[Rfam]
RNA sequence: UGGCUGGUGAUGAUUGAUCUUAAGGAUCUAGCGGAUUUCUGUGAGACUUUCGAGUCUAUGAUCGAUUUUGUUGUUACACACACUGAAGCCU
Numbered sequence: 001u002g003g004c005u006g007g008u009g010a011u012g013a014u015u016g017a018u019c020u021u022a023a024g025g026a027u028c029u030a031g032c033g034g035a036u037u038u039c040u041g042u043g044a045g046a047c048u049u050u051c052g053a054g055u056c057u058a059u060g061a062u063c064g065a066u067u068u069u070g071u072u073g074u075u076a077c078a079c080a081c082a083c084u085g086a087a088g089c090c091u
Stems, first nucleotide, its partner, number of pairs: 002090004
Rfam assigns this 91-nucleotide RNA from Vanilla planifolia to the family "Small nucleolar RNA R11/Z151". The literature on the family includes a 2001 paper in J Mol Biol by Barneche et al., "Identification of 66 box C/D snoRNAs in Arabidopsis thaliana: extensive gene duplications generated multiple isoforms predicting new ribosomal RNA 2'-O-methylation sites". The family's RNA type in Rfam is C/D-box small nucleolar RNA. The match comes from Rfam's covariance-model search (70 bits). Lineage of the source: Eukaryota > Euphyllophyta > Mesangiospermae > Vanilloideae > Vanilla. The family has 5 seed sequences and 802 matches in Rfam 15.1.